[Rfam]
RNA: Burkholderia sRNA 1
Organism: Burkholderia glumae
RNA sequence: CAGAGCACUACGGGGAAGCAGUACUAAAACAAGCGCGAGGCAGGCGUUGCCGGCACGUAAUCGACGUGCCGGCAAUGGCCACCGGCAGUACGCGAGGCCAAUAGACGAAGAACGACGAGGCACGCUUCGAGCGUGGUAGCAAUUGGGCGCUCCGCCGUCCGGCCGUGGUUAGUUUGACGGUUGGCGGCGGACGUGUUUUUUUG
Numbered sequence: 001c002a003g004a005g006c007a008c009u010a011c012g013g014g015g016a017a018g019c020a021g022u023a024c025u026a027a028a029a030c031a032a033g034c035g036c037g038a039g040g041c042a043g044g045c046g047u048u049g050c051c052g053g054c055a056c057g058u059a060a061u062c063g064a065c066g067u068g069c070c071g072g073c074a075a076u077g078g079c080c081a082c083c084g085g086c087a088g089u090a091c092g093c094g095a096g097g098c099c100a101a102u103a104g105a106c107g108a109a110g111a112a113c114g115a116c117g118a119g120g121c122a123c124g125c126u127u128c129g130a131g132c133g134u135g136g137u138a139g140c141a142a143u144u145g146g147g148c149g150c151u152c153c154g155c156c157g158u159c160c161g162g163c164c165g166u167g168g169u170u171a172g173u174u175u176g177a178c179g180g181u182u183g184g185c186g187g188c189g190g191a192c193g194u195g196u197u198u199u200u201u202u203g
Stems, first nucleotide, its partner, number of pairs: 002197002005194002008040002011037002014034001045077014081126001083124002088121001097106001131150004151191007159184003163180003